mir-4904 microRNA precursor family: a 79-nucleotide sequence from Branchiostoma belcheri. Rfam 15.1 lists 3 matches to the family in 3 species. Its family is annotated with miRNA-mediated post-transcriptional gene silencing and RISC complex in the Gene Ontology. Pairs were carried over by alignment from the consensus structure, which was predicted with RNAalifold. The organism belongs to Branchiostoma, within Eukaryota.
[Rfam]
RNA sequence: CCCUGGCUUGGUCCCGGAGUCGUUCUAUACGCCGUUUGUACUUGAUAAAAUGGCGUAGAGCGACUAAGGAACCAAGACA
Numbered sequence: 001c002c003c004u005g006g007c008u009u010g011g012u013c014c015c016g017g018a019g020u021c022g023u024u025c026u027a028u029a030c031g032c033c034g035u036u037u038g039u040a041c042u043u044g045a046u047a048a049a050a051u052g053g054c055g056u057a058g059a060g061c062g063a064c065u066a067a068g069g070a071a072c073c074a075a076g077a078c079a
Stems, first nucleotide, its partner, number of pairs: 007076006014069002018065009029056009